The record is a 172-nucleotide RNA sequence from Scophthalmus maximus, which matches "Small nucleolar RNA SNORA81" in Rfam. For this family Rfam cites "A novel experimental approach for systematic identification of box H/ACA snoRNAs from eukaryotes" (Gu et al., Nucleic Acids Res, 2005). NCBI's taxonomy places the organism under Eukaryota, Neopterygii, Pleuronectoidei, Scophthalmidae, Scophthalmus. A search with the family's covariance model found it, with a score of 54 bits. Rfam links the family to the GO terms nucleolus and RNA processing.

[Rfam]
RNA sequence: ACUUUUGCAUUAACAGAAUUCUGCUAAAAUUGUGUGAUCCAGAUUUGAUCUGUUUUGCGCAAUAAUGCUAGCAGAGUAUUGGUGUGGAAGGAGAUCUUGUGCACUGAUGAUGAGAUGUGGCCUCCUUCUUAAUGUUCAUUGGCCUCUUUUCUCAAGAUGUAGUGCCACAAUU
Numbered sequence: 001a002c003u004u005u006u007g008c009a010u011u012a013a014c015a016g017a018a019u020u021c022u023g024c025u026a027a028a029a030u031u032g033u034g035u036g037a038u039c040c041a042g043a044u045u046u047g048a049u050c051u052g053u054u055u056u057g058c059g060c061a062a063u064a065a066u067g068c069u070a071g072c073a074g075a076g077u078a079u080u081g082g083u084g085u086g087g088a089a090g091g092a093g094a095u096c097u098u099g100u101g102c103a104c105u106g107a108u109g110a111u112g113a114g115a116u117g118u119g120g121c122c123u124c125c126u127u128c129u130u131a132a133u134g135u136u137c138a139u140u141g142g143c144c145u146c147u148u149u150u151c152u153c154a155a156g157a158u159g160u161a162g163u164g165c166c167a168c169a170a171u172u
Stems, first nucleotide, its partner, number of pairs: 019076002022073005029066004035057003040052005101165006112143001114140001116138002119135001
Dot-bracket structure: ..................((.(((((..((((..(((..(((((...)))))..))).....))))..))))).))........................((((((.....(.(.((.(...............).)).)..)................)))))).......

Pairs were carried over by alignment from the consensus structure, which was predicted with WAR.